This 102-nucleotide RNA from Hepatocystis sp. ex Piliocolobus tephrosceles belongs to the Rfam family "small nucleolar RNA snoR13".

RNA sequence: UUUUGAAUGAUGAUAAAUAUAUAUAAACCGUUCGCAGUUGAGUUAAUACAACGAUGAAUUUUAAAUAUAUUUGAGCCUUCACUUAGAUGUCUGACAAAGGAG
Numbered sequence: 001u002u003u004u005g006a007a008u009g010a011u012g013a014u015a016a017a018u019a020u021a022u023a024u025a026a027a028c029c030g031u032u033c034g035c036a037g038u039u040g041a042g043u044u045a046a047u048a049c050a051a052c053g054a055u056g057a058a059u060u061u062u063a064a065a066u067a068u069a070u071u072u073g074a075g076c077c078u079u080c081a082c083u084u085a086g087a088u089g090u091c092u093g094a095c096a097a098a099g100g101a102g
Stems, first nucleotide, its partner, number of pairs: 001102004

A search with the family's covariance model found it, with a score of 65 bits. The pairing is the family consensus, mapped onto this sequence. Its family is annotated with nucleolus and RNA processing in the Gene Ontology. A reference for the family is Chakrabarti et al. (2007), "Structural RNAs of known and unknown function identified in malaria parasites by comparative genomics and RNA analysis", RNA. Taxonomically the source falls in Hepatocystis (Eukaryota, Sar, Aconoidasida, Plasmodiidae).